[Rfam]
Nucleotides: 102
Stems, first nucleotide, its partner, number of pairs: 001102003021083001024080001030072005039064002041057005
Number, partner (000 for none) and nucleotide at each position: 001102u002101g003100c004000u005000g006000u007000g008000a009000u010000g011000a012000u013000g014000u015000a016000a017000u018000u019000u020000g021083c022000g023000u024080c025000u026000u027000a028000u029000c030072c031071a032070g033069u034068g035000u036000u037000c038000a039064g040063c041057g042056a043055c044054a045053g046000u047000u048000g049000c050000c051000u052000g053045c054044u055043g056042u057041u058000a059000c060000c061000a062000u063040g064039c065000u066000g067000g068034c069033a070032c071031u072030g073000u074000u075000g076000a077000g078000c079000u080024g081000c082000a083021g084000a085000c086000a087000c088000a089000u090000u091000u092000g093000a094000u095000u096000c097000u098000g099000a100003g101002c102001a